[Rfam]
RNA sequence: GAGGAAAUGGGAACAGCGGCUUAAGCCAUUAGGUGUAGGCGCUUUCCAGAGAUAUAAGAUUCUAGUUCUUCCUAUUUGACCCGAAACCGAUCGAUCUAGCCAUGAGCAGGUUGAAGAGAGCUCACACAGGCCUUGGAGGACCGAACCCACGUAUGUGGCAAAAUACGGGGAUGACUUGUGGCUAGGGGUGAAAGGCCAACCAAGAUCGGAUAUAGCUGGUU
Numbered sequence: 001g002a003g004g005a006a007a008u009g010g011g012a013a014c015a016g017c018g019g020c021u022u023a024a025g026c027c028a029u030u031a032g033g034u035g036u037a038g039g040c041g042c043u044u045u046c047c048a049g050a051g052a053u054a055u056a057a058g059a060u061u062c063u064a065g066u067u068c069u070u071c072c073u074a075u076u077u078g079a080c081c082c083g084a085a086a087c088c089g090a091u092c093g094a095u096c097u098a099g100c101c102a103u104g105a106g107c108a109g110g111u112u113g114a115a116g117a118g119a120g121c122u123c124a125c126a127c128a129g130g131c132c133u134u135g136g137a138g139g140a141c142c143g144a145a146c147c148c149a150c151g152u153a154u155g156u157g158g159c160a161a162a163a164u165a166c167g168g169g170g171a172u173g174a175c176u177u178g179u180g181g182c183u184a185g186g187g188g189u190g191a192a193a194g195g196c197c198a199a200c201c202a203a204g205a206u207c208g209g210a211u212a213u214a215g216c217u218g219g220u221u
Base pairs, nucleotide, nucleotide: 005077006076007075008074009073010072011071012070013069015067016066017065019040020039021038022037025034026033027032045050052060080219081218083216087209088208089207090206091205092204096185097184098183099182100181101180102179103178104177105176106175107173109142110141111140112139116134117133118132121129122128146170147169148168150167151166152165153164154163187197188196189195